[Rfam]
RNA sequence: AUGAAGGCAGGGGGAGAGACUGCGUAAUAGCAGCGCCGAAGGAGCAAGCCGUAAUGGGCGAAUCUCUCAGGCAAAAGAACUCUUGCUGGACG
Numbered sequence: 001a002u003g004a005a006g007g008c009a010g011g012g013g014g015a016g017a018g019a020c021u022g023c024g025u026a027a028u029a030g031c032a033g034c035g036c037c038g039a040a041g042g043a044g045c046a047a048g049c050c051g052u053a054a055u056g057g058g059c060g061a062a063u064c065u066c067u068c069a070g071g072c073a074a075a076a077g078a079a080c081u082c083u084u085g086c087u088g089g090a091c092g
Stems, first nucleotide, its partner, number of pairs: 006087008020033004035072003038068002042066003048059002
The family of this 92-nucleotide RNA sequence from Peribacillus saganii is "Glycine riboswitch aptamer". It scores 72 bits against the family's covariance model. About the family: This family represents the bacterial glycine riboswitch.